[Rfam]
RNA sequence: UCCACAGUAGCUCAAGGGAAGAGCGGGCGCCUGUUAAGCGUCAGGUUGGGGGUUCGAAUCCCUCCUGUGGAG
Numbered sequence: 001u002c003c004a005c006a007g008u009a010g011c012u013c014a015a016g017g018g019a020a021g022a023g024c025g026g027g028c029g030c031c032u033g034u035u036a037a038g039c040g041u042c043a044g045g046u047u048g049g050g051g052g053u054u055c056g057a058a059u060c061c062c063u064c065c066u067g068u069g070g071a072g
Base pairs, nucleotide, nucleotide: 001071002070003069004068005067006066007065010024011023012022013021026042027041028040029039030038048064049063050062051061052060
Dot-bracket structure: (((((((..((((.......)))).(((((.......))))).....(((((.......)))))))))))).